[Rfam]
Nucleotides: 354
Stems, first nucleotide, its partner, number of pairs: 040057007061191005071184002073180004085169002089166003095111005112151007192207004198217002201215003320335004326351006
Number, partner (000 for none) and nucleotide at each position: 001000u002000g003000c004000c005000u006000u007000g008000c009000a010000c011000c012000c013000g014000c015000c016000c017000c018000c019000u020000g021000u022000c023000g024000g025000a026000c027000c028000u029000a030000u031000g032000u033000u034000u035000g036000u037000c038000c039000u040057g041056u042055u043054c044053g045052g046051g047000g048000c049000a050000a051046c052045c053044c054043g055042g056041a057040c058000u059000a060000u061191g062190g063189a064188c065187a066000u067000a068000a069000a070000c071184g072183c073180g074179c075178u076177c077000g078000u079000a080000a081000u082000a083000a084000g085169c086168g087000g088000a089166u090165c091164g092000g093000a094000c095111c096110c097109g098108g099107g100000g101000g102000c103000g104000g105000u106000a107099c108098c109097c110096g111095g112151c113150g114149g115148c116147u117146c118145c119000a120000c121000c122000a123000g124000a125000u126000a127000c128000c129000c130000u131000c132000g133000u134000u135000g136000g137000g138000g139000g140000a141000c142000c143000a144000u145118g146117g147116g148115g149114c150113c151112g152000a153000a154000a155000c156000a157000g158000g159000a160000u161000c162000g163000a164091c165090g166089a167000a168086c169085g170000u171000c172000u173000a174000a175000a176000g177076g178075g179074g180073u181000u182000u183072g184071c185000u186000u187065u188064g189063u190062c191061c192207c193206g194205g195204u196000g197000a198217g199216c200000u201215a202214c203213c204195a205194c206193c207192g208000u209000u210000a211000u212000c213203g214202g215201u216199g217198c218000g219000a220000a221000a222000u223000g224000u225000a226000c227000a228000g229000u230000u231000g232000c233000c234000a235000a236000c237000g238000a239000c240000a241000a242000c243000c244000g245000u246000g247000c248000u249000c250000c251000g252000g253000u254000c255000g256000c257000u258000c259000u260000g261000g262000c263000u264000g265000c266000g267000u268000a269000a270000g271000c272000a273000g274000c275000u276000c277000g278000g279000g280000u281000a282000a283000c284000c285000g286000a287000a288000a289000c290000c291000u292000a293000a294000c295000u296000c297000c298000u299000u300000g301000c302000g303000c304000u305000u306000a307000g308000c309000c310000g311000c312000g313000u314000a315000a316000g317000g318000c319000g320335g321334g322333g323332c324000c325000c326351g327350c328349a329348g330347g331346a332323g333322c334321c335320u336000u337000g338000c339000a340000a341000c342000a343000g344000a345000a346331u347330c348329c349328u350327g351326c352000a353000c354000c
This 354-nucleotide RNA from Paracoccus homiensis belongs to the Rfam family "Alphaproteobacteria transfer-messenger RNA". By type it is a non-coding RNA gene. The organism belongs to Paracoccus, within Bacteria. Bacterial tmRNA, also known as 10Sa RNA or SsrA, is named for its dual tRNA and mRNA-like properties.